[Rfam]
RNA sequence: AAAGUUUAAAAGCAAAACAUUUAAUAAAAUGUUACGCAAAGCUAUGGACCCACUAAUUGGGCUGCCAGGCUGCCAGA
Numbered sequence: 001a002a003a004g005u006u007u008a009a010a011a012g013c014a015a016a017a018c019a020u021u022u023a024a025u026a027a028a029a030u031g032u033u034a035c036g037c038a039a040a041g042c043u044a045u046g047g048a049c050c051c052a053c054u055a056a057u058u059g060g061g062c063u064g065c066c067a068g069g070c071u072g073c074c075a076g077a
Base pairs, nucleotide, nucleotide: 012037013036017032018031019030020029021028022027040071041070042069043068045067046066047065049061050060051059052058
Rfam assigns this 77-nucleotide RNA sequence from Halanaerobium saccharolyticum to the family "c-di-GMP-I riboswitch aptamer". It scores 50 bits against the family's covariance model. Taxonomically the source falls in Halanaerobium saccharolyticum subsp. saccharolyticum (Bacteria, Bacillota, Clostridia, Halanaerobium saccharolyticum). The literature on the family includes a 2007 paper in Nucleic Acids Res by Weinberg et al., "Identification of 22 candidate structured RNAs in bacteria using the CMfinder comparative genomics pipeline".